RNA sequence: AUGCAAAUCGCCUGAUAAAGCUUCUUAUGGGUAUGCGAAUAUAGAUAAGUCAAGCAAGGUAUGCCUCCCCGGCAUUACAGGUAAGA
Numbered sequence: 001a002u003g004c005a006a007a008u009c010g011c012c013u014g015a016u017a018a019a020g021c022u023u024c025u026u027a028u029g030g031g032u033a034u035g036c037g038a039a040u041a042u043a044g045a046u047a048a049g050u051c052a053a054g055c056a057a058g059g060u061a062u063g064c065c066u067c068c069c070c071g072g073c074a075u076u077a078c079a080g081g082u083a084a085g086a
Stems, first nucleotide, its partner, number of pairs: 020055003025048004031042004059078003062074004
A member of the RNA family "Bacteroides-1 RNA" from Bacteroides thetaiotaomicron, 86 nucleotides long. Pairs were carried over by alignment from the consensus structure, which is taken from published work. The sequence is in the family's curated seed alignment.